[Rfam]
RNA sequence: GAGUGUUACGGCGCUUUUGUCUAGCAGGCUUUCUGCUUUUUACUGGAAAGUGCCCCC
Dot-bracket structure: ..........................(((((((((.(....).))))))..)))...
Numbered sequence: 001g002a003g004u005g006u007u008a009c010g011g012c013g014c015u016u017u018u019g020u021c022u023a024g025c026a027g028g029c030u031u032u033c034u035g036c037u038u039u040u041u042a043c044u045g046g047a048a049a050g051u052g053c054c055c056c057c
Stems, first nucleotide, its partner, number of pairs: 027054003030049006037042001